[Rfam]
RNA sequence: GCGUGCUCCGGGGUCGGUGUAAGUCCGAACCGGCGGUGAUAGUCCGCGACCCGCGUAUCUGCGCGGUUGACCUGGUGGAAUUCCAGGACCGACGGUGAAAGUCCGGAUGGGAGGUGGCACGG
Dot-bracket structure: ..((((((......(((.......))).[[((((((.....[[))))...((............))....(((((.......)))))]])).(((.....]]))).......))..))))..
FMN riboswitch aptamer (RFN element): a 122-nucleotide RNA from Buchananella hordeovulneris.